[Rfam]
RNA: MIR4371 microRNA precursor family
RNA sequence: CCGUUAAGUGAUGACGUGACAAACGGAAUGUCACGCAUCACACUCAAUCACUGACAUGUCAAUGUUAUGUUAUUAAAAGUGAUGAUGUGAUAAUGAGGUGUUUGUGAUAAGGCGUAAUGAAGUGACACUUCAUCUGCCACGUCAUAAUUUAACGGAA
Numbered sequence: 001c002c003g004u005u006a007a008g009u010g011a012u013g014a015c016g017u018g019a020c021a022a023a024c025g026g027a028a029u030g031u032c033a034c035g036c037a038u039c040a041c042a043c044u045c046a047a048u049c050a051c052u053g054a055c056a057u058g059u060c061a062a063u064g065u066u067a068u069g070u071u072a073u074u075a076a077a078a079g080u081g082a083u084g085a086u087g088u089g090a091u092a093a094u095g096a097g098g099u100g101u102u103u104g105u106g107a108u109a110a111g112g113c114g115u116a117a118u119g120a121a122g123u124g125a126c127a128c129u130u131c132a133u134c135u136g137c138c139a140c141g142u143c144a145u146a147a148u149u150u151a152a153c154g155g156a157a
Base pairs, nucleotide, nucleotide: 001155002154003153004152005151006150007149008148009147011145012144013143014142015141016140017139018138020136021135023133025131026130027129029127030126031125032124033123034122036119037118038117040115041114043112044111047108048107049106050105051104053102054101055100056099057098069086070085071084072083073082